[Rfam]
RNA sequence: AUCCUUUCGUGGUGGCAGUAUCGUAACCUAUGAGGUUUAUCCGAGGUGUGAUUAUUGCUGGUUGAAAACUUUAACCCAAUGCCCACCUGGAUGAUUUAAAAUAUAGUCAGCAAUGACAAUUUUUGACGGUCUCUACAGAGA
Numbered sequence: 001a002u003c004c005u006u007u008c009g010u011g012g013u014g015g016c017a018g019u020a021u022c023g024u025a026a027c028c029u030a031u032g033a034g035g036u037u038u039a040u041c042c043g044a045g046g047u048g049u050g051a052u053u054a055u056u057g058c059u060g061g062u063u064g065a066a067a068a069c070u071u072u073a074a075c076c077c078a079a080u081g082c083c084c085a086c087c088u089g090g091a092u093g094a095u096u097u098a099a100a101a102u103a104u105a106g107u108c109a110g111c112a113a114u115g116a117c118a119a120u121u122u123u124u125g126a127c128g129g130u131c132u133c134u135a136c137a138g139a140g141a
Stems, first nucleotide, its partner, number of pairs: 020052005026047003034042002087115001088113001090111001092109005130141004
RNA: U4 spliceosomal RNA
Organism: Amphiprion percula